[Rfam]
RNA sequence: CCAAGGGACACACCAACAAAUUGGAUGGAGGCGGGGGACCCACCGGUCCGCCGAACAAGCAGACCAGGGACCGCAAGGUUCCUUGGGGUGAAGCUCUGGUCACGACGACAGAGCCGGGCAACCUCUCCAGCCCGAACCCGACAGCUGACCUCGUGGGCGCUGAUGAGAGGACCU
Numbered sequence: 001c002c003a004a005g006g007g008a009c010a011c012a013c014c015a016a017c018a019a020a021u022u023g024g025a026u027g028g029a030g031g032c033g034g035g036g037g038a039c040c041c042a043c044c045g046g047u048c049c050g051c052c053g054a055a056c057a058a059g060c061a062g063a064c065c066a067g068g069g070a071c072c073g074c075a076a077g078g079u080u081c082c083u084u085g086g087g088g089u090g091a092a093g094c095u096c097u098g099g100u101c102a103c104g105a106c107g108a109c110a111g112a113g114c115c116g117g118g119c120a121a122c123c124u125c126u127c128c129a130g131c132c133c134g135a136a137c138c139c140g141a142c143a144g145c146u147g148a149c150c151u152c153g154u155g156g157g158c159g160c161u162g163a164u165g166a167g168a169g170g171a172c173c174u
Base pairs, nucleotide, nucleotide: 001028002027003026031154032153033152034151035150036149041085042084086139087138088137094113095112096111097110116133117132118131119130

The family of this 174-nucleotide sequence from Mycolicibacterium neoaurum is "c-di-AMP riboswitch aptamer (ydaO/yuaA leader)". The source organism's lineage runs through Bacteria, Actinomycetota, Mycobacteriaceae, Mycobacterium and Mycolicibacterium neoaurum.